[Rfam]
RNA: tRNA
Organism: Actibacterium mucosum
RNA sequence: GCGGGCGUGAUGGAAUGGUAGACAUAUCGGACUUAAAAUCCGAAGGGCCUAUGCCCGUGUGGGUUCGAGUCCCACCGCCCGCA
Numbered sequence: 001g002c003g004g005g006c007g008u009g010a011u012g013g014a015a016u017g018g019u020a021g022a023c024a025u026a027u028c029g030g031a032c033u034u035a036a037a038a039u040c041c042g043a044a045g046g047g048c049c050u051a052u053g054c055c056c057g058u059g060u061g062g063g064u065u066c067g068a069g070u071c072c073c074a075c076c077g078c079c080c081g082c083a
Stems, first nucleotide, its partner, number of pairs: 001082007010025003027043005059075005